[Rfam]
RNA sequence: CGAGCACCCCAACCCAAGAACCGCCGCUGCCUGUAGCUGCGGUUUAAGCAGUGGUGCACACAGCAAAGGUGCCUCGUCGCCUUUGGGGGUCUGCGAAGUGCCCCCCAGAGUGAAUCGAGGGGCCCCACAGCC
Dot-bracket structure: .(.(((((..........((((((.(((......))).))))))........))))).).........(.(((((.....(((((((((.(........).)))))))))........))))).).......